[Rfam]
RNA sequence: UGCGGUGUAGAGAAGUUCGGUAUCUCGUCUGGCUCAUAAUCAGAAGGCCGCCGGUUCGAAUCCGGCCUCCGCAA
Numbered sequence: 001u002g003c004g005g006u007g008u009a010g011a012g013a014a015g016u017u018c019g020g021u022a023u024c025u026c027g028u029c030u031g032g033c034u035c036a037u038a039a040u041c042a043g044a045a046g047g048c049c050g051c052c053g054g055u056u057c058g059a060a061u062c063c064g065g066c067c068u069c070c071g072c073a074a
Stems, first nucleotide, its partner, number of pairs: 001073005007067001010026004028044005050066005